[Rfam]
Background
A member of the RNA family "Acido-Lenti-1 RNA" from Williamwhitmania taraxaci, 46 nucleotides long. The match comes from Rfam's covariance-model search (37 bits).

RNA sequence: CCGAGGCCUUACGACCUCGCCUAAUAUAUGUCGCACCUUCGGCGCU
Numbered sequence: 001c002c003g004a005g006g007c008c009u010u011a012c013g014a015c016c017u018c019g020c021c022u023a024a025u026a027u028a029u030g031u032c033g034c035a036c037c038u039u040c041g042g043c044g045c046u
Base pairs, nucleotide, nucleotide: 002019003018004017005016006015008013033045034044036042037041